Rfam assigns this 77-nucleotide RNA sequence from Lepisosteus oculatus to the family "mir-30 microRNA precursor family". The family has 175 seed sequences and 3,879 matches in Rfam 15.1. Pairs were carried over by alignment from the consensus structure, which was predicted with PFOLD. A search with the family's covariance model found it, with a score of 71 bits.
RNA sequence: UCUGGUACUGUAAACAUCCCCGACUGGAAGCUGUAAAAUAACAUCUGAGCUUUCAGUCAGAUGUUUGCUGCAACCGG
Numbered sequence: 001u002c003u004g005g006u007a008c009u010g011u012a013a014a015c016a017u018c019c020c021c022g023a024c025u026g027g028a029a030g031c032u033g034u035a036a037a038a039u040a041a042c043a044u045c046u047g048a049g050c051u052u053u054c055a056g057u058c059a060g061a062u063g064u065u066u067g068c069u070g071c072a073a074c075c076g077g
Base pairs, nucleotide, nucleotide: 002076004074006072008070010068011067012066013065014064015063016062017061018060023057024056025055026054027053028052029051030050031049032048

This family consists of the mammalian microRNA (miRNA) precursor mir-30a. Animal miRNAs are transcribed as ~70nt precursors and subsequently processed by the Dicer enzyme to give a ~22nt product.